RNA sequence: GGCUACUCUGAGUAUCGUGGUGUUUACAGUUAAUCAUAGAUAGUUGCAGACUUCUUCAUUCCUUCUCUACCCCACUGCUUCACUUGACUAGCCUAAA
Number, nucleotide and partner (000 for none) at each position: 001g093002g092003c091004u090005a089006c000007u087008c086009u000010g085011a084012g000013u000014a000015u000016c000017g075018u074019g073020g072021u000022g071023u000024u000025u000026a000027c000028a060029g059030u058031u000032a056033a055034u000035c000036a000037u000038a000039g000040a000041u000042a000043g000044u000045u000046g000047c000048a000049g000050a000051c000052u000053u000054c000055u033056u032057c000058a030059u029060u028061c000062c000063u000064u000065c000066u000067c000068u000069a000070c000071c022072c020073c019074a018075c017076u000077g000078c000079u000080u000081c000082a000083c000084u011085u010086g008087a007088c000089u005090a004091g003092c002093c001094u000095a000096a000097a000
Shown here is a 97-nucleotide RNA sequence from Moschus moschiferus, a member of the family "Y RNA".
Y RNAs are components of the Ro ribonucleoprotein particle (Ro RNP), in association with Ro60 and La proteins. The Y RNAs and Ro60 and La proteins are well conserved, but the function of the Ro RNP is not known. In humans the RNA component can be one of four small RNAs -- hY1, hY3, hY4 and hY5. These small RNAs are predicted to fold into a conserved secondary structure containing three stem structures.
The base pairs follow the family's consensus structure, which is taken from published work.
The source organism's lineage runs through Eukaryota, Metazoa, Deuterostomia, Artiodactyla and Moschus.